RNA: ALIL pseudoknot
Organism: Microbacterium immunditiarum
RNA sequence: GGCUUUCUUCGCGGCGGAGCUCGACCGCCCACACAGCUGAUGGUCGAUUACAUCGACGCGCACAAAGCCGAGUUCGGGGUCGAGCCGAUCUGCCAGGAGCUGCCGAUCGCCCCG
Numbered sequence: 001g002g003c004u005u006u007c008u009u010c011g012c013g014g015c016g017g018a019g020c021u022c023g024a025c026c027g028c029c030c031a032c033a034c035a036g037c038u039g040a041u042g043g044u045c046g047a048u049u050a051c052a053u054c055g056a057c058g059c060g061c062a063c064a065a066a067g068c069c070g071a072g073u074u075c076g077g078g079g080u081c082g083a084g085c086c087g088a089u090c091u092g093c094c095a096g097g098a099g100c101u102g103c104c105g106a107u108c109g110c111c112c113c114g
Base pairs, nucleotide, nucleotide: 013029014028015027016026017025075114076113077112078111079110086109087108089106090105092103093102